[Rfam]
RNA sequence: UCGGCUCCGGUUCACGCCGACGACGGACGCCGACGACCCGGUCGCC
Dot-bracket structure: ..(((.((((....((.((.((.....)).)).))..))))..)))
Numbered sequence: 001u002c003g004g005c006u007c008c009g010g011u012u013c014a015c016g017c018c019g020a021c022g023a024c025g026g027a028c029g030c031c032g033a034c035g036a037c038c039c040g041g042u043c044g045c046c
Stems, first nucleotide, its partner, number of pairs: 003046003007041004015035002018032002021029002